[Rfam]
RNA sequence: AUCCAUUCUGGCCUUUUGGCUUAGAUCAAGUGUAGUAUCUGUUCUUAUCAGUGUAAUUACUGGUAUUGGUUCAUCGAACCAAUCAAUUAAUUACUCUUAUCUUUGAAUGCCCUCGACUGCUCCCUGGCUUGCCAGCGUGGUUGAGACGAUGGCCUUGGGCUUACACUACCCCCUAGUGCUGUCAGGCAAA
Number, nucleotide and partner (000 for none) at each position: 001a000002u000003c000004c000005a000006u000007u025008c024009u023010g021011g020012c019013c018014u000015u000016u000017u000018g013019g012020c011021u010022u000023a009024g008025a007026u000027c000028a000029a000030g000031u000032g000033u000034a000035g000036u000037a000038u000039c000040u000041g000042u000043u000044c000045u000046u065047a064048u063049c062050a061051g060052u000053g000054u000055a000056a000057u000058u000059a000060c051061u050062g049063g048064u047065a046066u082067u081068g080069g079070u078071u077072c076073a000074u000075c000076g072077a071078a070079c069080c068081a067082a066083u000084c000085a000086a000087u000088u000089a000090a000091u000092u000093a000094c000095u000096c000097u000098u000099a000100u000101c000102u000103u000104u000105g000106a000107a000108u000109g000110c000111c000112c145113u144114c143115g142116a141117c140118u139119g138120c000121u000122c000123c000124c135125u134126g133127g132128c000129u000130u000131g000132c127133c126134a125135g124136c000137g000138u119139g118140g117141u116142u115143g114144a113145g112146a000147c000148g183149a182150u181151g180152g179153c178154c176155u175156u000157g173158g172159g171160c000161u000162u000163a000164c000165a000166c000167u000168a000169c000170c000171c159172c158173c157174u000175a155176g154177u000178g153179c152180u151181g150182u149183c148184a000185g000186g000187c000188a000189a000190a000

Shown here is a 190-nucleotide RNA from Melampsora laricis-populina, a member of the family "U2 spliceosomal RNA".
From the family's description: U2 is a small nuclear RNA (snRNA) component of the spliceosome (involved in pre-mRNA splicing).
Pairs were carried over by alignment from the consensus structure, which is taken from published work.
Lineage of the source: Eukaryota > Basidiomycota > Pucciniales > Melampsora > Melampsora laricis-populina.
Rfam classes the family as a spliceosomal small nuclear RNA.